Rfam assigns this 100-nucleotide sequence from Shuttleworthella satelles to the family "SAM riboswitch aptamer (S box leader)".
The organism belongs to Shuttleworthella satelles, within Bacteria.
The sequence is in the family's curated seed alignment.

RNA sequence: CUCUUAUUCAGAGUGGUGGAGAUACAUAGGAUCCGUGAAGCCACGGCAACCCCCAAAGCGGUAGGUGCCAACCUGAGCGAGUAUGUUCGAACAAUAAGAG
Numbered sequence: 001c002u003c004u005u006a007u008u009c010a011g012a013g014u015g016g017u018g019g020a021g022a023u024a025c026a027u028a029g030g031a032u033c034c035g036u037g038a039a040g041c042c043a044c045g046g047c048a049a050c051c052c053c054c055a056a057a058g059c060g061g062u063a064g065g066u067g068c069c070a071a072c073c074u075g076a077g078c079g080a081g082u083a084u085g086u087u088c089g090a091a092c093a094a095u096a097a098g099a100g
Stems, first nucleotide, its partner, number of pairs: 001100008013044005021033003027077001030074001045069004050065002053061002078089004